RNA sequence: AGCAGUGAUGAUAUUCCACUCCUUUGGUCCGUGUUUCUGAACCAUGUGAUUGUUCUGGAUGUUCUGAUGCU
Dot-bracket structure: ((((...............................................................))))
This 71-nucleotide RNA from Galemys pyrenaicus belongs to the Rfam family "Small nucleolar RNA SNORD18". The family is grouped with related families in Rfam's "SNORD18 clan". On this family, see Prislei et al., Nucleic Acids Res 1993: "Two different snoRNAs are encoded in introns of amphibian and human L1 ribosomal protein genes". The family's consensus secondary structure was predicted with PFOLD.